[Rfam]
RNA sequence: GAAAGAUCGGAUUAACUACUGUCCGAUUGGGCUGAAUAAUCGCCCCAAUCAAA
Numbered sequence: 001g002a003a004a005g006a007u008c009g010g011a012u013u014a015a016c017u018a019c020u021g022u023c024c025g026a027u028u029g030g031g032c033u034g035a036a037u038a039a040u041c042g043c044c045c046c047a048a049u050c051a052a053a
Stems, first nucleotide, its partner, number of pairs: 005028008029045004
This 53-nucleotide RNA sequence from Butyrivibrio sp. AD3002 belongs to the Rfam family "S4-Clostridia ribosomal protein leader". On this family, see Eckert and Weinberg, BMC Microbiol 2020: "Discovery of 20 novel ribosomal leader candidates in bacteria and archaea". It is annotated as a cis-regulatory leader. Lineage of the source: Bacteria > Bacillota > Lachnospirales > Lachnospiraceae > Butyrivibrio. Clan: Ribosomal Protein S4 Leader clan.